[Rfam]
RNA sequence: UGCUGGAGGGAUUCCUGGCAGAGUGAUUUUGGUUUAUGUUGUAAUAUAAAUCACAUUGCCAGGGAUUUCCAACGAGCC
Number, nucleotide and partner (000 for none) at each position: 001u000002g077003c000004u075005g000006g073007a000008g000009g070010g069011a066012u065013u064014c063015c062016u061017g060018g059019c058020a057021g056022a000023g054024u053025g052026a051027u050028u049029u048030u000031g000032g000033u000034u000035u000036a000037u000038g000039u000040u000041g000042u000043a000044a000045u000046a000047u000048a029049a028050a027051u026052c025053a024054c023055a000056u021057u020058g019059c018060c017061a016062g015063g014064g013065a012066u011067u000068u000069c010070c009071a000072a000073c006074g000075a004076g000077c002078c000